The family of this 65-nucleotide RNA from Streptococcus massiliensis is "Streptococcus sRNA Spd-sr37". The match comes from Rfam's covariance-model search (65 bits).
RNA sequence: CGAAACUUGUGAUGGUCAAAGCUCAUGAGAGUUGCAGGUUUUUUUGUCCUGCACUCUUGAGGUUU
Numbered sequence: 001c002g003a004a005a006c007u008u009g010u011g012a013u014g015g016u017c018a019a020a021g022c023u024c025a026u027g028a029g030a031g032u033u034g035c036a037g038g039u040u041u042u043u044u045u046g047u048c049c050u051g052c053a054c055u056c057u058u059g060a061g062g063u064u065u
Stems, first nucleotide, its partner, number of pairs: 019065005033053006